[Rfam]
RpsF leader: an 84-nucleotide RNA sequence from Photobacterium jeanii. For this family Rfam cites "S6:S18 ribosomal protein complex interacts with a structural motif present in its own mRNA" (Matelska et al., RNA, 2013). Gene Ontology terms of the family: protein binding and negative regulation of translation. The family's RNA type in Rfam is cis-regulatory leader. The base pairs follow the family's consensus structure. Rfam describes the family as follows. Conserved and widely distributed to many bacterial species RNA structure. It precedes operon containing rpsF, which encodes ribosomal protein S6. The motif also precedes operon containing rpsR, which encodes ribosomal protein S18. Lineage of the source: Bacteria > Pseudomonadati > Pseudomonadota > Gammaproteobacteria > Photobacterium.
RNA sequence: UCGGUUAUUUACUUUAGUUCCUUGCUUCUCUUGGAAAACCGAGCCAAUUCGAGAAGCUGAUUAAUCCGUAAGGAGCAACCAAUG
Numbered sequence: 001u002c003g004g005u006u007a008u009u010u011a012c013u014u015u016a017g018u019u020c021c022u023u024g025c026u027u028c029u030c031u032u033g034g035a036a037a038a039c040c041g042a043g044c045c046a047a048u049u050c051g052a053g054a055a056g057c058u059g060a061u062u063a064a065u066c067c068g069u070a071a072g073g074a075g076c077a078a079c080c081a082a083u084g
Stems, first nucleotide, its partner, number of pairs: 017076007024057006032046003